[Rfam]
RNA sequence: UGCACUGAAUGGUAUCUGCACCCAGCAGCAUUCUCUGCUGGGGUGUUCAAAGAUCAGUGCUACAGGAGGUCAGUGUUGGCAUCGUUGGUUUUCAUUCUGCUGUGUUUGUUAAACCUGGUAUUAUUGCUGAUACAGUA
Numbered sequence: 001u002g003c004a005c006u007g008a009a010u011g012g013u014a015u016c017u018g019c020a021c022c023c024a025g026c027a028g029c030a031u032u033c034u035c036u037g038c039u040g041g042g043g044u045g046u047u048c049a050a051a052g053a054u055c056a057g058u059g060c061u062a063c064a065g066g067a068g069g070u071c072a073g074u075g076u077u078g079g080c081a082u083c084g085u086u087g088g089u090u091u092u093c094a095u096u097c098u099g100c101u102g103u104g105u106u107u108g109u110u111a112a113a114c115c116u117g118g119u120a121u122u123a124u125u126g127c128u129g130a131u132a133c134a135g136u137a
Base pairs, nucleotide, nucleotide: 002060003059004058005057006056007055014054015053016052017051018046019045020044021043022042023041024039025038026037027036028035063126064125065124067122068121070118071117072116073115078106079105080104081103082102

Rfam assigns this 137-nucleotide RNA sequence from Eolophus roseicapilla to the family "Small nucleolar RNA SNORA8".
A search with the family's covariance model found it, with a score of 114 bits.
The source organism's lineage runs through Eukaryota, Eumetazoa, Dipnotetrapodomorpha, Sauropsida and Eolophus.
Clan: SNORA8 clan.
Its family is annotated with nucleolus and RNA processing in the Gene Ontology.
From the family's description: ACA8 is a member of the H/ACA class of snoRNA that guide the sites of modification of uridines to pseudouridines.